[Rfam]
U5 spliceosomal RNA: a 116-nucleotide RNA sequence from Nyssa sinensis. Rfam links the family to the GO terms U5 snRNP and spliceosomal tri-snRNP complex assembly. A reference for the family is Zwieb (1997), "The uRNA database", Nucleic Acids Res. Rfam's curators write: U5 RNA is a component of both types of known spliceosome. The precise function of this molecule is unknown, though it is known that the 5' loop is required for splice site selection and p220 binding, and that both the 3' stem-loop and the Sm site are important for Sm protein binding and cap methylation. The source organism's lineage runs through Eukaryota, Tracheophyta, Mesangiospermae, asterids and Nyssa.
RNA sequence: AGCCAUGCAGUGAGCACAUAACGAACUACUCUUUCGCCUUUUACUAAAGAAUACCGUGUUCUCGCUGCAAAUAGCGGCAUAUAUUUAUUUUUGGAGAGGUUAUUUCUUAUGGGAUA
Numbered sequence: 001a002g003c004c005a006u007g008c009a010g011u012g013a014g015c016a017c018a019u020a021a022c023g024a025a026c027u028a029c030u031c032u033u034u035c036g037c038c039u040u041u042u043a044c045u046a047a048a049g050a051a052u053a054c055c056g057u058g059u060u061c062u063c064g065c066u067g068c069a070a071a072u073a074g075c076g077g078c079a080u081a082u083a084u085u086u087a088u089u090u091u092u093g094g095a096g097a098g099g100u101u102a103u104u105u106c107u108u109a110u111g112g113g114a115u116a
Stems, first nucleotide, its partner, number of pairs: 003077002006074001008067007016059003027053002030050005101116006